[Rfam]
Shown here is a 75-nucleotide sequence from Callorhinus ursinus, a member of the family "mir-16 microRNA precursor family". Gene Ontology terms of the family: RISC complex and miRNA-mediated post-transcriptional gene silencing. Rfam 15.1 lists 4,705 matches to the family in 758 species. Clan: mir-15 clan.

RNA sequence: CCCUGGCUCUAGCAGCACAGAAAUAUUGGCACUGGGAAGAGCCUGCCAAUAUUGGCCGUGCUGCUCCAGGCAGGG
Numbered sequence: 001c002c003c004u005g006g007c008u009c010u011a012g013c014a015g016c017a018c019a020g021a022a023a024u025a026u027u028g029g030c031a032c033u034g035g036g037a038a039g040a041g042c043c044u045g046c047c048a049a050u051a052u053u054g055g056c057c058g059u060g061c062u063g064c065u066c067c068a069g070g071c072a073g074g075g
Stems, first nucleotide, its partner, number of pairs: 001075003005071001007069001010068001011065008022053010